[Rfam]
RNA sequence: AUCGAUGUGAGGAGUUAAUCGAAAGAAAGAAGCCCUUGGAGUCGAAACACGGACAGACGCCCAGGGGCUUUUUUCAU
Numbered sequence: 001a002u003c004g005a006u007g008u009g010a011g012g013a014g015u016u017a018a019u020c021g022a023a024a025g026a027a028a029g030a031a032g033c034c035c036u037u038g039g040a041g042u043c044g045a046a047a048c049a050c051g052g053a054c055a056g057a058c059g060c061c062c063a064g065g066g067g068c069u070u071u072u073u074u075c076a077u
Base pairs, nucleotide, nucleotide: 026074027073028072029071030070033067034066038062039061041058042057043056
Notes:
Shown here is a 77-nucleotide RNA from Leptolyngbya sp. Cla-17, a member of the family "Cyano-1 RNA". The source organism's lineage runs through Bacteria, Bacillati, Cyanobacteriota, Leptolyngbyaceae and Leptolyngbya. Rfam classes the family as a small RNA.